The family of this 131-nucleotide RNA from Neiella litorisoli is "Histidine operon leader". A reference for the family is Kolter and Yanofsky (1982), "Attenuation in amino acid biosynthetic operons", Annu Rev Genet. Rfam's curators write: At least 6 amino acid operons are known to be regulated by attenuation.

[Rfam]
RNA sequence: CCAUCAUCAUCACCAUCCAGAAAGUUGACCUUUCAGGAGCGGGAUGCGUGGAAGGUCGAUUAGCCUUCCAACGGUGUGUCAGCCAUAGUGCAAGAACCCUCGGAAGGCCCGGCCCCCGAGGGUUUUUUAUU
Numbered sequence: 001c002c003a004u005c006a007u008c009a010u011c012a013c014c015a016u017c018c019a020g021a022a023a024g025u026u027g028a029c030c031u032u033u034c035a036g037g038a039g040c041g042g043g044a045u046g047c048g049u050g051g052a053a054g055g056u057c058g059a060u061u062a063g064c065c066u067u068c069c070a071a072c073g074g075u076g077u078g079u080c081a082g083c084c085a086u087a088g089u090g091c092a093a094g095a096a097c098c099c100u101c102g103g104a105a106g107g108c109c110c111g112g113c114c115c116c117c118g119a120g121g122g123u124u125u126u127u128u129a130u131u
Stems, first nucleotide, its partner, number of pairs: 008046003011042001014039001017037002020034002047073001049070007092127012106113001